[Rfam]
RNA sequence: UGGCGCCUGCGGCGGACCCGGCACGCGCAAACAGAUGACUUCGCAGGCAGUCUGUGUGUGUACGGUCUUGUACAUCCCGGAAUUACCGGGAUUUAACGUUUUCU
Numbered sequence: 001u002g003g004c005g006c007c008u009g010c011g012g013c014g015g016a017c018c019c020g021g022c023a024c025g026c027g028c029a030a031a032c033a034g035a036u037g038a039c040u041u042c043g044c045a046g047g048c049a050g051u052c053u054g055u056g057u058g059u060g061u062a063c064g065g066u067c068u069u070g071u072a073c074a075u076c077c078c079g080g081a082a083u084u085a086c087c088g089g090g091a092u093u094u095a096a097c098g099u100u101u102u103c104u
Base pairs, nucleotide, nucleotide: 005048006047007046008045009044010043011042014068015067017065018064021061022060023059024058025057026056027055028054037052038051039050040049076090077089078088079087080086